[Rfam]
About this RNA
The family of this 53-nucleotide sequence from Rhodopseudomonas palustris is "ffh sRNA". Pairs were carried over by alignment from the consensus structure, which is taken from published work. By type it is a small RNA.
RNA sequence: GAGGCCGGAGGUCAACGUCCGACAGCGCGAUGCGCCCUCGGGCGCAAUAAGUG
Number, nucleotide and partner (000 for none) at each position: 001g000002a000003g000004g000005c000006c000007g000008g000009a000010g000011g000012u000013c000014a000015a000016c044017g043018u042019c041020c040021g039022a038023c000024a000025g035026c034027g033028c032029g000030a000031u000032g028033c027034g026035c025036c000037c000038u022039c021040g020041g019042g018043c017044g016045c000046a000047a000048u000049a000050a000051g000052u000053g000